[Rfam]
RNA sequence: CGUUCUCUGCUGUGAACGACGGCGCGUGCAAACAUUUAGCCUUGUCCCUUAAUCACGACCAAGGAGGCGCGACGAUACCGGGAGUGCAAGUCUGCCUUAGGAGCGGAAAGCCCAAUGGUAUUUCAACGCCUCCACUUGAACCACUGGUUCAAGGUCGUUUCGCGAGCAUCGUCAUAGCGGAGAAUGC
Numbered sequence: 001c002g003u004u005c006u007c008u009g010c011u012g013u014g015a016a017c018g019a020c021g022g023c024g025c026g027u028g029c030a031a032a033c034a035u036u037u038a039g040c041c042u043u044g045u046c047c048c049u050u051a052a053u054c055a056c057g058a059c060c061a062a063g064g065a066g067g068c069g070c071g072a073c074g075a076u077a078c079c080g081g082g083a084g085u086g087c088a089a090g091u092c093u094g095c096c097u098u099a100g101g102a103g104c105g106g107a108a109a110g111c112c113c114a115a116u117g118g119u120a121u122u123u124c125a126a127c128g129c130c131u132c133c134a135c136u137u138g139a140a141c142c143a144c145u146g147g148u149u150c151a152a153g154g155u156c157g158u159u160u161c162g163c164g165a166g167c168a169u170c171g172u173c174a175u176a177g178c179g180g181a182g183a184a185u186g187c
Stems, first nucleotide, its partner, number of pairs: 002185014017171003038155001040154002043151002047147002063133003067129003074122007086111002091107005
This 187-nucleotide sequence from Xylella fastidiosa belongs to the Rfam family "6S / SsrS RNA".
Rfam classes the family as a non-coding RNA gene.
The base pairs follow the family's consensus structure, which is taken from published work.
The sequence is in the family's curated seed alignment.